Shown here is a 65-nucleotide RNA sequence from Synechococcus sp. KORDI-100, a member of the family "Cyano-1 RNA". It scores 47 bits against the family's covariance model. By type it is a small RNA. Pairs were carried over by alignment from the consensus structure, which is taken from published work.
[Rfam]
RNA sequence: UGAGUCGUGAGGAAUAGCGCCACACGGGGUGGAAACAAGGACACACUCCCGGGAUGCGUUUUUGG
Numbered sequence: 001u002g003a004g005u006c007g008u009g010a011g012g013a014a015u016a017g018c019g020c021c022a023c024a025c026g027g028g029g030u031g032g033a034a035a036c037a038a039g040g041a042c043a044c045a046c047u048c049c050c051g052g053g054a055u056g057c058g059u060u061u062u063u064g065g
Stems, first nucleotide, its partner, number of pairs: 016060005025052001026050003029046003